[Rfam]
RNA sequence: AAGACUAUACUUUCAGGGAUCAUUUCUAUAGUAUCCAACUAGAGAAAUGCACUCGAAAGUGAUCGGCUGAGCAAGCCACGAGGAGGAGGCGUAGUGUUCUCUCCUGAGCGCGAAGCUGGCAGGCGGUGCUACUUCAUGUGGCUGCUGCCUGCCUUUGAUGACCGUUCCGCUUCUUCUUACGGAGAGGUUGGAGGGAGAGAACGCAGUCUGAGUGGU
Dot-bracket structure: .((...(((((...((((.....))))..)))))....))..........(.((......)))...........(((((..............((((((((((((..(((.......((((..(((((((((.....))))).))))..)))).........)))..(((((((((....))))))).))..)))))))))))).......)))))